Description:
A member of the RNA family "DUF805 RNA" from Flavobacterium kingsejongi, 68 nucleotides long. It scores 59 bits against the family's covariance model. The organism belongs to Flavobacterium, within Bacteria. Its Rfam clan is "DUF805 clan". Rfam 15.1 lists 281 matches to the family in 219 species.

RNA sequence: AAUAAGUGGAGACAGCAACCACUGUAAUAAACGAGGCGGAAUCCGAAAAGCCGGAGAGUAGGAAAAAU
Numbered sequence: 001a002a003u004a005a006g007u008g009g010a011g012a013c014a015g016c017a018a019c020c021a022c023u024g025u026a027a028u029a030a031a032c033g034a035g036g037c038g039g040a041a042u043c044c045g046a047a048a049a050g051c052c053g054g055a056g057a058g059u060a061g062g063a064a065a066a067a068u
Stems, first nucleotide, its partner, number of pairs: 006022004035052003042062002